[Rfam]
Rfam assigns this 210-nucleotide RNA sequence from Pseudomonas sp. C27(2019) to the family "sucA-II RNA". The organism belongs to Pseudomonas, within Bacteria. The base pairs follow the family's consensus structure, which is taken from published work. The match comes from Rfam's covariance-model search (124 bits). By type it is a cis-regulatory element.

RNA sequence: GCCGCUCACAUGAGUACCUUCAUGUGAGCGGCUUUAAACGAAAAAUUGCUUACAAAGCUUUUUUUAAACACAAUUGACGACCAGCAGGGGCAUCCGGGCUGGUGCCCGGACUAUUUGCGGGAAUCGUAGUGGCUUUAUUCAAGUCGCUGUAUGUGACUUAAGGCCGUUAAGUUUCCACGCCGAUAGCGUCCCCCUUAUCAAGGGUGACCU
Numbered sequence: 001g002c003c004g005c006u007c008a009c010a011u012g013a014g015u016a017c018c019u020u021c022a023u024g025u026g027a028g029c030g031g032c033u034u035u036a037a038a039c040g041a042a043a044a045a046u047u048g049c050u051u052a053c054a055a056a057g058c059u060u061u062u063u064u065u066a067a068a069c070a071c072a073a074u075u076g077a078c079g080a081c082c083a084g085c086a087g088g089g090g091c092a093u094c095c096g097g098g099c100u101g102g103u104g105c106c107c108g109g110a111c112u113a114u115u116u117g118c119g120g121g122a123a124u125c126g127u128a129g130u131g132g133c134u135u136u137a138u139u140c141a142a143g144u145c146g147c148u149g150u151a152u153g154u155g156a157c158u159u160a161a162g163g164c165c166g167u168u169a170a171g172u173u174u175c176c177a178c179g180c181c182g183a184u185a186g187c188g189u190c191c192c193c194c195u196u197a198u199c200a201a202g203g204g205u206g207a208c209c210u
Stems, first nucleotide, its partner, number of pairs: 001032013041065005048058003086195005091188001093110006111186005117180003121176001123173001125171001128168005133162001135161003142158004